[Rfam]
Nucleotides: 077
Stems, first nucleotide, its partner, number of pairs: 006070002009067003014062002017059002021055003025052005
Number, partner (000 for none) and nucleotide at each position: 001000c002000g003000a004000a005000a006070c007069u008000c009067u010066c011065a012000a013000u014062u015061c016000c017059g018058u019000a020000g021055u022054g023053c024000a025052u026051u027050g028049c029048a030000g031000u032000u033000g034000a035000u036000u037000u038000u039000a040000g041000g042000a043000a044000u045000u046000a047000c048029u049028g050027c051026a052025a053023g054022c055021g056000c057000u058018g059017c060000a061015g062014a063000a064000u065011u066010g067009g068000c069007a070006g071000c072000u073000c074000c075000g076000c077000u
Rfam assigns this 77-nucleotide RNA sequence from Drosophila virilis to the family "mir-932 microRNA precursor family". The base pairs follow the family's consensus structure, which was predicted with RNAalifold. Rfam 15.1 lists 136 matches to the family in 136 species.